Background:
Rfam assigns this 168-nucleotide RNA from Streptomyces dysideae to the family "c-di-AMP riboswitch aptamer (ydaO/yuaA leader)". The organism belongs to Streptomyces, within Bacteria. Rfam's curators write: This family represents a conserved RNA structure found upstream of the ydaO and yuaA genes in Bacillus subtilis and related genes in other bacteria. The ydaO/yuaA element is thought to act as a genetic 'off' switch for the ydaO and yuaA genes in its native state. It is believed that the element may be triggered during osmotic shock leading to activation of ydaO, a predicted amino acid transporter gene, and members of the yuaA-yubG operon which code for KtrA and KtrB K+ transporters.

RNA sequence: ACCACCCACCGACCAACGCACGGCAGGAGCGGGGGAACCAGGUAAAUCGCCGGACCGGGCUGCACCGCCGGACCGGCUAGGGGUGAAACCGCGUCGCCGUACGGCGGCACGGCCGGGCAUCUCCCGCCCGAACCCGACAGCUCACCUCGCAGGCGCCGGAGAGGAACA
Numbered sequence: 001a002c003c004a005c006c007c008a009c010c011g012a013c014c015a016a017c018g019c020a021c022g023g024c025a026g027g028a029g030c031g032g033g034g035g036a037a038c039c040a041g042g043u044a045a046a047u048c049g050c051c052g053g054a055c056c057g058g059g060c061u062g063c064a065c066c067g068c069c070g071g072a073c074c075g076g077c078u079a080g081g082g083g084u085g086a087a088a089c090c091g092c093g094u095c096g097c098c099g100u101a102c103g104g105c106g107g108c109a110c111g112g113c114c115g116g117g118c119a120u121c122u123c124c125c126g127c128c129c130g131a132a133c134c135c136g137a138c139a140g141c142u143c144a145c146c147u148c149g150c151a152g153g154c155g156c157c158g159g160a161g162a163g164g165a166a167c168a
Stems, first nucleotide, its partner, number of pairs: 007155001009153002014026001029150006039080001081135003089112003115129004